[Rfam]
RNA sequence: CCCCAGUCCCCAGGUCAGGGUAUGACCCCGUGGUGUUGAAAGGACA
Numbered sequence: 001c002c003c004c005a006g007u008c009c010c011c012a013g014g015u016c017a018g019g020g021u022a023u024g025a026c027c028c029c030g031u032g033g034u035g036u037u038g039a040a041a042g043g044a045c046a
Stems, first nucleotide, its partner, number of pairs: 002043002004038004009033002013027005
RNA: Insect-Specific Flavivirus 3' UTR repeats Rb